[Rfam]
Notes: This 109-nucleotide sequence from Otolemur garnettii belongs to the Rfam family "Small nucleolar RNA U6-53/MBII-28". It is annotated as a C/D-box small nucleolar RNA. A reference for the family is Huttenhofer et al. (2001), "RNomics: an experimental approach that identifies 201 candidates for novel, small, non-messenger RNAs in mouse", EMBO J. The base pairs follow the family's consensus structure.

RNA sequence: CCCCUGUGAUGAGUUGCCAUGCUAAUACUGAGACACCAAGGAGGGUGUUUUACCCUACUUUGGGUGUUACUGAGAUAAAGUCUAUUUCUCACAAAUUUACCUGAGGGGC
Numbered sequence: 001c002c003c004c005u006g007u008g009a010u011g012a013g014u015u016g017c018c019a020u021g022c023u024a025a026u027a028c029u030g031a032g033a034c035a036c037c038a039a040g041g042a043g044g045g046u047g048u049u050u051u052a053c054c055c056u057a058c059u060u061u062g063g064g065u066g067u068u069a070c071u072g073a074g075a076u077a078a079a080g081u082c083u084a085u086u087u088c089u090c091a092c093a094a095a096u097u098u099a100c101c102u103g104a105g106g107g108g109c
Stems, first nucleotide, its partner, number of pairs: 001108004042056004

The family has 25 seed sequences and 780 matches in Rfam 15.1.
The organism belongs to Otolemur, within Eukaryota.
The match comes from Rfam's covariance-model search (111 bits).